[Rfam]
RNA sequence: GCCGAGCUAAGUAGCACUGGCUUGUGACUCAAGUGAGGGCAUUAUGGUGGCCGGACAAUGGUUCGAUCCAUUGAGACAGGUUCAGUGAGCUGCGCUUGCUGGCUUGCCCGGUCCAAGUUGGGAGUUGGGUAAUGCAGCCCAAGCGAUGGAUUGGACUUUAUGGCUCGUAGAGUGGAGGGCACAUCAUCAGGCUGGUUUCACAGAGCAACGAUAACCUCCCGCUCUCGACAGUGGAAGGAUUACAAGGCGGGGCACUCUUGGGCCAUAUUGCCUGGUGACUCGGUUACACUGAACUGCCACGUUU
Number, nucleotide and partner (000 for none) at each position: 001g040002c039003c038004g023005a022006g021007c020008u019009a018010a000011g000012u000013a000014g000015c000016a000017c000018u009019g008020g007021c006022u005023u004024g000025u000026g000027a000028c037029u036030c035031a000032a000033g000034u000035g030036a029037g028038g003039g002040c001041a000042u000043u000044a303045u000046g000047g300048u299049g298050g297051c296052c000053g294054g000055a000056c291057a290058a000059u288060g287061g000062u000063u283064c282065g281066a280067u000068c000069c277070a276071u275072u274073g273074a000075g272076a000077c270078a269079g264080g263081u262082u261083c260084a259085g258086u000087g000088a256089g000090c000091u254092g253093c000094g000095c251096u000097u000098g000099c250100u249101g248102g000103c246104u245105u244106g243107c000108c238109c237110g000111g000112u235113c234114c233115a232116a000117g229118u228119u227120g226121g225122g224123a223124g222125u221126u000127g166128g165129g164130u163131a000132a161133u160134g159135c000136a157137g156138c000139c154140c153141a152142a151143g000144c149145g000146a000147u000148g000149g144150a000151u142152u141153g140154g139155a000156c137157u136158u000159u134160a133161u132162g000163g130164c129165u128166c127167g000168u000169a000170g000171a000172g000173u000174g219175g218176a217177g216178g215179g000180c000181a000182c000183a212184u211185c210186a000187u208188c000189a000190g000191g000192c203193u202194g201195g000196u000197u000198u000199c000200a000201c194202a193203g192204a000205g000206c000207a000208a187209c000210g185211a184212u183213a000214a000215c178216c177217u176218c175219c174220c000221g125222c124223u123224c122225u121226c120227g119228a118229c117230a000231g000232u115233g114234g113235a112236a000237g109238g108239a000240u000241u000242a000243c106244a105245a104246g103247g000248c101249g100250g099251g095252g000253c092254a091255c000256u088257c000258u085259u084260g083261g082262g081263c080264c079265a000266u000267a000268u000269u078270g077271c000272c075273u073274g072275g071276u070277g069278a000279c000280u066281c065282g064283g063284u000285u000286a000287c060288a059289c000290u057291g056292a000293a000294c053295u000296g051297c050298c049299a048300c047301g000302u000303u044304u000

Shown here is a 304-nucleotide RNA from Camellia sinensis, a member of the family "Plant signal recognition particle RNA".
Taxonomically the source falls in Camellia sinensis (Eukaryota, Embryophyta, Tracheophyta, Spermatophyta).
The family's consensus secondary structure is taken from published work.